[Rfam]
RNA sequence: CAGGGCGUGGGGGAGUUUGGCCGUCCCCGCCGCACUCGGAAUGCGGAGAUCGCAGGUUCAAAUCCUGCCGCCCUGA
Numbered sequence: 001c002a003g004g005g006c007g008u009g010g011g012g013g014a015g016u017u018u019g020g021c022c023g024u025c026c027c028c029g030c031c032g033c034a035c036u037c038g039g040a041a042u043g044c045g046g047a048g049a050u051c052g053c054a055g056g057u058u059c060a061a062a063u064c065c066u067g068c069c070g071c072c073c074u075g076a
Stems, first nucleotide, its partner, number of pairs: 001075007010028004030046005052068005
This 76-nucleotide RNA sequence from Allobosea lathyri belongs to the Rfam family "tRNA". NCBI's taxonomy places the organism under Bacteria, Pseudomonadota, Alphaproteobacteria, Alloboseaceae, Allobosea. The family's consensus secondary structure is taken from published work.